[Rfam]
RNA sequence: AUCACCUGGAGAUCACGUUAAAAUGCAGAUGCUGAUUCAGUGGAUCUGAGAAUCUGAGGCUUCUGCAUUUCUAGCAAGAUCUCAGGUGAUGUUGA
Dot-bracket structure: ..(((...(.(..(..(((((((.(((((.(((........................))).))))).))).))))..).).)...))).......
Shown here is a 95-nucleotide RNA sequence from Diceros bicornis, a member of the family "mir-544 microRNA precursor family". The match comes from Rfam's covariance-model search (67 bits). Taxonomically the source falls in Diceros bicornis (Eukaryota, Eumetazoa, Chordata, Boreoeutheria). The literature on the family includes a 2010 paper in Genes Dev by Chiang et al., "Mammalian microRNAs: experimental evaluation of novel and previously annotated genes". Gene Ontology terms of the family: RISC complex and miRNA-mediated post-transcriptional gene silencing.